[Rfam]
RNA: Glycine riboswitch aptamer
Organism: Actinoplanes octamycinicus
RNA sequence: GCCAGCCGCGCGGGAGAGACCUGCACAUCCAGGCGCCGAAGGGGCAACUCCUCCCCGGAAUCUCUACAGGCAAACGGACCGCGCGGGCAGG
Numbered sequence: 001g002c003c004a005g006c007c008g009c010g011c012g013g014g015a016g017a018g019a020c021c022u023g024c025a026c027a028u029c030c031a032g033g034c035g036c037c038g039a040a041g042g043g044g045c046a047a048c049u050c051c052u053c054c055c056c057g058g059a060a061u062c063u064c065u066a067c068a069g070g071c072a073a074a075c076g077g078a079c080c081g082c083g084c085g086g087g088c089a090g091g
Base pairs, nucleotide, nucleotide: 006086007085008084009083010082011081012080013079020033021032022031023030035071036070037069038067039065042064043063044062048058049057